[Rfam]
RNA sequence: GGUCGCAUUUCUCCUUCUUACCAGCGCGUUUUCAGUUUCAUAGGGAAGCCUUUCCAUGAAACUGGAGCGCCUGGAGGAGAAGGGGCC
Numbered sequence: 001g002g003u004c005g006c007a008u009u010u011c012u013c014c015u016u017c018u019u020a021c022c023a024g025c026g027c028g029u030u031u032u033c034a035g036u037u038u039c040a041u042a043g044g045g046a047a048g049c050c051u052u053u054c055c056a057u058g059a060a061a062c063u064g065g066a067g068c069g070c071c072u073g074g075a076g077g078a079g080a081a082g083g084g085g086c087c
Base pairs, nucleotide, nucleotide: 001087002086003085004084006082009081010080011079012078013077014076015075021074022073023072024071026070027069028068029067030066031065033064034063035062036061037060038059039058040057041056043054044053045052046051
The record is an 87-nucleotide RNA from Homo sapiens, which matches "mir-4738 microRNA precursor family" in Rfam. Gene Ontology terms of the family: RISC complex and miRNA-mediated post-transcriptional gene silencing. The organism belongs to Homo, within Eukaryota.